[Rfam]
RNA sequence: ACUGAAUAAUAAGCUUACACUCGUAUAAUCUUGGAAAUAGGGUCCGGGAGUCUCUACAAGGUGACCGAAAAAUACCUUACUAUGAGUGGAAUGUGCCUGACG
Numbered sequence: 001a002c003u004g005a006a007u008a009a010u011a012a013g014c015u016u017a018c019a020c021u022c023g024u025a026u027a028a029u030c031u032u033g034g035a036a037a038u039a040g041g042g043u044c045c046g047g048g049a050g051u052c053u054c055u056a057c058a059a060g061g062u063g064a065c066c067g068a069a070a071a072a073u074a075c076c077u078u079a080c081u082a083u084g085a086g087u088g089g090a091a092u093g094u095g096c097c098u099g100a101c102g
Base pairs, nucleotide, nucleotide: 018088019087020086021085022084023083024082025081029049030048031047032046033045034044035043058078059077060076061075062074063073
A member of the RNA family "Purine riboswitch aptamer" from Anaerospora hongkongensis, 102 nucleotides long. The family's consensus secondary structure is taken from published work. NCBI's taxonomy places the organism under Bacteria, Bacillota, Negativicutes, Selenomonadales, Anaerospora.